Rfam assigns this 185-nucleotide sequence from Prochlorococcus marinus to the family "6S / SsrS RNA". The base pairs follow the family's consensus structure, which is taken from published work. By type it is a non-coding RNA gene. It is one of the family's seed sequences.
RNA sequence: AAGUCACUGGAUCUUUGGUUAAGUUCUUCUUUAUGUGCUCUGAUCUGACUUUCUUUCGACGUGAGGAGACUGUCGUGAUGCGGUAGUAAACCGAUCUUGUAAUCGGAAACGAAAGCCCACUUUGAAUCCUCUUCUGGCUUUUCCAGGUCGAUGCAGCAGAGAACUGACGGGGAUCCGGUAAACCU
Numbered sequence: 001a002a003g004u005c006a007c008u009g010g011a012u013c014u015u016u017g018g019u020u021a022a023g024u025u026c027u028u029c030u031u032u033a034u035g036u037g038c039u040c041u042g043a044u045c046u047g048a049c050u051u052u053c054u055u056u057c058g059a060c061g062u063g064a065g066g067a068g069a070c071u072g073u074c075g076u077g078a079u080g081c082g083g084u085a086g087u088a089a090a091c092c093g094a095u096c097u098u099g100u101a102a103u104c105g106g107a108a109a110c111g112a113a114a115g116c117c118c119a120c121u122u123u124g125a126a127u128c129c130u131c132u133u134c135u136g137g138c139u140u141u142u143c144c145a146g147g148u149c150g151a152u153g154c155a156g157c158a159g160a161g162a163a164c165u166g167a168c169g170g171g172g173a174u175c176c177g178g179u180a181a182a183c184c185u
Stems, first nucleotide, its partner, number of pairs: 004181001006179010018168002036155003041150006063131003067127001070124001072122001075120003080116002086110002091106005